A member of the RNA family "MIR535 microRNA precursor family" from Eucalyptus grandis, 96 nucleotides long. The literature on the family includes a 2010 paper in Nucleic Acids Res by Zeng et al., "Conservation and divergence of microRNAs and their functions in Euphorbiaceous plants". The match comes from Rfam's covariance-model search (94 bits). Pairs were carried over by alignment from the consensus structure, which was predicted with RNAalifold.
[Rfam]
RNA sequence: AUCGUUGCUUGACAACGAGAGAGAGCACGCUAGUUAGCAUCCAUAAAAGGGACAUGGGCUGUGUACAAGCGUGCUCUCUAUCGUUGUCAUACGAUC
Numbered sequence: 001a002u003c004g005u006u007g008c009u010u011g012a013c014a015a016c017g018a019g020a021g022a023g024a025g026c027a028c029g030c031u032a033g034u035u036a037g038c039a040u041c042c043a044u045a046a047a048a049g050g051g052a053c054a055u056g057g058g059c060u061g062u063g064u065a066c067a068a069g070c071g072u073g074c075u076c077u078c079u080a081u082c083g084u085u086g087u088c089a090u091a092c093g094a095u096c
Base pairs, nucleotide, nucleotide: 010089011088012087013086014085016083017082020079021078023076025074026073027072028071029070030069031068033066034065